[Rfam]
RNA: FMN riboswitch aptamer (RFN element)
RNA sequence: CUUGAUCCUCAGGGCGGGGUGGAAGUCCCCACCGGCGGUAUCCCGGCUUUAUGGCCGGGGAGCCCGCGAGCGCUCUCUUCAUCGGGAAGAGAGGUCAGCAGAUCCGGUGAGAUGCCGGAGCCGACGGUUACAGUCCGGAUGGAAGAGGAACGAG
Numbered sequence: 001c002u003u004g005a006u007c008c009u010c011a012g013g014g015c016g017g018g019g020u021g022g023a024a025g026u027c028c029c030c031a032c033c034g035g036c037g038g039u040a041u042c043c044c045g046g047c048u049u050u051a052u053g054g055c056c057g058g059g060g061a062g063c064c065c066g067c068g069a070g071c072g073c074u075c076u077c078u079u080c081a082u083c084g085g086g087a088a089g090a091g092a093g094g095u096c097a098g099c100a101g102a103u104c105c106g107g108u109g110a111g112a113u114g115c116c117g118g119a120g121c122c123g124a125c126g127g128u129u130a131c132a133g134u135c136c137g138g139a140u141g142g143a144a145g146a147g148g149a150a151c152g153a154g
Stems, first nucleotide, its partner, number of pairs: 003152002006149005017029003031134002033123002035067004062121002070099002103119005125137003